[Rfam]
RNA: HIV gag stem loop 3 (GSL3)
Organism: Lentivirus humimdef1
RNA sequence: GGCCGGGGGGAAAGAAAAAGUAUCAGAUAAAACAUAUAGUGUGGGCAAGCAGGAAGCUGGAGAAAUUUGCACUUAACCCCGGUC
Numbered sequence: 001g002g003c004c005g006g007g008g009g010g011a012a013a014g015a016a017a018a019a020g021u022a023u024c025a026g027a028u029a030a031a032a033c034a035u036a037u038a039g040u041g042u043g044g045g046c047a048a049g050c051a052g053g054a055a056g057c058u059g060g061a062g063a064a065a066u067u068u069g070c071a072c073u074u075a076a077c078c079c080c081g082g083u084c
Stems, first nucleotide, its partner, number of pairs: 001084008